[Rfam]
RNA sequence: GGAUUGGGUGUUGGCAAACAGUUAAUUAGUGAAGUAGGGAACCUUCCCCCCUCUGCGAAGGCCGAAAAGAGGCUAACCAUGCCCUUAGUAGGACUAGCAAAAAGAGGGGGCUAGCGGUAGCAGUGAGUUUAUUGGAUGGCCGAAUCCCUGAGUACAGGGAAGUCGUCAAUGGUUCGACACUCUGGUAAUAUAAGAGUCUCGAGAUGCCAUGUGGACGAGGGCAUGCCCACGGCACAUCUUAACCUAUGCGGGGGUUGCAUGGGUGAAAGCACCAUUUACGGUGUUAUAAACACAGCCUGAUAGGGUGUAGCAGAGACCUGCUAUCCCGCUAGUAAAAACUCUGCUGUACAUGGCAC
Numbered sequence: 001g002g003a004u005u006g007g008g009u010g011u012u013g014g015c016a017a018a019c020a021g022u023u024a025a026u027u028a029g030u031g032a033a034g035u036a037g038g039g040a041a042c043c044u045u046c047c048c049c050c051c052u053c054u055g056c057g058a059a060g061g062c063c064g065a066a067a068a069g070a071g072g073c074u075a076a077c078c079a080u081g082c083c084c085u086u087a088g089u090a091g092g093a094c095u096a097g098c099a100a101a102a103a104g105a106g107g108g109g110g111c112u113a114g115c116g117g118u119a120g121c122a123g124u125g126a127g128u129u130u131a132u133u134g135g136a137u138g139g140c141c142g143a144a145u146c147c148c149u150g151a152g153u154a155c156a157g158g159g160a161a162g163u164c165g166u167c168a169a170u171g172g173u174u175c176g177a178c179a180c181u182c183u184g185g186u187a188a189u190a191u192a193a194g195a196g197u198c199u200c201g202a203g204a205u206g207c208c209a210u211g212u213g214g215a216c217g218a219g220g221g222c223a224u225g226c227c228c229a230c231g232g233c234a235c236a237u238c239u240u241a242a243c244c245u246a247u248g249c250g251g252g253g254g255u256u257g258c259a260u261g262g263g264u265g266a267a268a269g270c271a272c273c274a275u276u277u278a279c280g281g282u283g284u285u286a287u288a289a290a291c292a293c294a295g296c297c298u299g300a301u302a303g304g305g306u307g308u309a310g311c312a313g314a315g316a317c318c319u320g321c322u323a324u325c326c327c328g329c330u331a332g333u334a335a336a337a338a339c340u341c342u343g344c345u346g347u348a349c350a351u352g353g354c355a356c
Base pairs, nucleotide, nucleotide: 048109049108050107051106052105053104055098056097060095061094062092063091067086068085069084071083072082073081110333111332112331113330114329115328116327117324118323119322120321121320122319123318124294125293127291128290129289130288131287132286134239135238136237137236138235139233140232141231142230145160146159147158148157149156150155163218164217165216166215167214169210170209171208172207173206174202175201176200177199179197180196181195182194183193219228220227221226242264243263244262245261246260247259248258249257250256251255269284270283271282272281273280295306296305297304298303308346309345310344311343312342313341314340315339
This 356-nucleotide RNA sequence from Orthopestivirus tauri belongs to the Rfam family "Pestivirus internal ribosome entry site (IRES) including 5'UTR SLI". The sequence is in the family's curated seed alignment. Pairs were carried over by alignment from the consensus structure. On this family, see Arhab et al., Viruses 2020: "Dissemination of Internal Ribosomal Entry Sites (IRES) Between Viruses by Horizontal Gene Transfer". Rfam's curators write: This family represents the internal ribosome entry site (IRES) of the the pestiviruses. The pestivirus IRES allows cap and end-independent translation of mRNA in the host cell. The IRES achieves this by mediating the internal initiation of translation by recruiting a ribosomal 43S pre-initiation complex directly to the initiation codon and eliminates the requirement for eIF4F. The classical swine virus UTR described in appears to be longer at the 5' end than other pestivirus UTRs. This family represents the conserved core.